This 266-nucleotide part of an RNA from Povalibacter uvarum belongs to the Rfam family "Bacterial large subunit ribosomal RNA". The source organism's lineage runs through Bacteria, Pseudomonadati, Gammaproteobacteria, Steroidobacteraceae and Povalibacter. The match comes from Rfam's covariance-model search (2856 bits). Its Rfam clan is "LSU clan". The family's consensus secondary structure is taken from published work.

[Rfam]
RNA sequence: GGAAACUUGAGGGUGAGCUGUCCUUAGUACGAGAGGACCGGGAUGGACGUAUCUCUGGUGUUCCGGUUGUCACGCCAGUGGCAUUGCCGGGUAGCUAUAUACGGACGGGAUAAGCGCUGAAAGCAUCUAAGCGCGAAGCCCCCCCCAAGAUUAGGUUUCCCUGGGAACUCGAUUCCCCUAAAGGGCCGUCGAAGACUACGACGUUGAUAGGCUGGGUGUGUACGUGCAGUAAUGCAUUGAGCUAACCAGUACUAAUUGCCCGUGAG
Numbered sequence: 001g002g003a004a005a006c007u008u009g010a011g012g013g014u015g016a017g018c019u020g021u022c023c024u025u026a027g028u029a030c031g032a033g034a035g036g037a038c039c040g041g042g043a044u045g046g047a048c049g050u051a052u053c054u055c056u057g058g059u060g061u062u063c064c065g066g067u068u069g070u071c072a073c074g075c076c077a078g079u080g081g082c083a084u085u086g087c088c089g090g091g092u093a094g095c096u097a098u099a100u101a102c103g104g105a106c107g108g109g110a111u112a113a114g115c116g117c118u119g120a121a122a123g124c125a126u127c128u129a130a131g132c133g134c135g136a137a138g139c140c141c142c143c144c145c146c147a148a149g150a151u152u153a154g155g156u157u158u159c160c161c162u163g164g165g166a167a168c169u170c171g172a173u174u175c176c177c178c179u180a181a182a183g184g185g186c187c188g189u190c191g192a193a194g195a196c197u198a199c200g201a202c203g204u205u206g207a208u209a210g211g212c213u214g215g216g217u218g219u220g221u222a223c224g225u226g227c228a229g230u231a232a233u234g235c236a237u238u239g240a241g242c243u244a245a246c247c248a249g250u251a252c253u254a255a256u257u258g259c260c261c262g263u264g265a266g
Stems, first nucleotide, its partner, number of pairs: 001160008011146003015143001018046007048103005056097003063090005068083006107141003114134005163178003180263001183261004187203005208254003211250005218242001224237005